The record is a 92-nucleotide sequence from Trema orientale, which matches "small nucleolar RNA snoR114" in Rfam. The base pairs follow the family's consensus structure, which was predicted with RNAalifold. NCBI's taxonomy places the organism under Eukaryota, Streptophytina, Magnoliopsida, fabids, Trema.
RNA sequence: GAGCUGUGAUGAUUACCUAGCGCCAUGUGUGAUGGAGGGGUCUAUCACUACCGUCUGAUAUCUUCGGACGAUACAUCAGCGCUUCUGAGCUC
Numbered sequence: 001g002a003g004c005u006g007u008g009a010u011g012a013u014u015a016c017c018u019a020g021c022g023c024c025a026u027g028u029g030u031g032a033u034g035g036a037g038g039g040g041u042c043u044a045u046c047a048c049u050a051c052c053g054u055c056u057g058a059u060a061u062c063u064u065c066g067g068a069c070g071a072u073a074c075a076u077c078a079g080c081g082c083u084u085c086u087g088a089g090c091u092c
Stems, first nucleotide, its partner, number of pairs: 001092004
The literature on the family includes a 2009 paper in Nucleic Acids Res by Chen and Wu, "Mining small RNA sequencing data: a new approach to identify small nucleolar RNAs in Arabidopsis". Rfam classes the family as a C/D-box small nucleolar RNA.